[Rfam]
RNA sequence: ACGCAUCUAUUUGACAGACCUGGAACAGUUACUGUCUGCUGCUAAGGUCCCAGUGCAGAUGCAAGAAAAAACGGUCACUGUGCUUUCUUUCUGUCUGACUGGCAGCCAAGAUUGAAUGGGGGAAUACAAUG
Numbered sequence: 001a002c003g004c005a006u007c008u009a010u011u012u013g014a015c016a017g018a019c020c021u022g023g024a025a026c027a028g029u030u031a032c033u034g035u036c037u038g039c040u041g042c043u044a045a046g047g048u049c050c051c052a053g054u055g056c057a058g059a060u061g062c063a064a065g066a067a068a069a070a071a072c073g074g075u076c077a078c079u080g081u082g083c084u085u086u087c088u089u090u091c092u093g094u095c096u097g098a099c100u101g102g103c104a105g106c107c108a109a110g111a112u113u114g115a116a117u118g119g120g121g122g123a124a125u126a127c128a129a130u131g
Stems, first nucleotide, its partner, number of pairs: 003062006011053002017049004024040001026038003075123002078120002083114001086111004091105005
RNA: Small nucleolar RNA SNORA31